A member of the RNA family "mir-998 microRNA precursor family" from Hermetia illucens, 85 nucleotides long.
RNA sequence: ACAAUUUACUUUGGAUCUGAACUCUCAUGGGCCUGCAUUCUUUUGUACAUGUAGCACCAUGAGAUUCAGCUCUAGCGUAAAUUGA
Numbered sequence: 001a002c003a004a005u006u007u008a009c010u011u012u013g014g015a016u017c018u019g020a021a022c023u024c025u026c027a028u029g030g031g032c033c034u035g036c037a038u039u040c041u042u043u044u045g046u047a048c049a050u051g052u053a054g055c056a057c058c059a060u061g062a063g064a065u066u067c068a069g070c071u072c073u074a075g076c077g078u079a080a081a082u083u084g085a
Stems, first nucleotide, its partner, number of pairs: 003083005009077001011075005017069003023064008033054005
About this RNA:
The source organism's lineage runs through Eukaryota, Metazoa, Panarthropoda, Pancrustacea and Hermetia. The family has 7 seed sequences and 83 matches in Rfam 15.1. A search with the family's covariance model found it, with a score of 76 bits.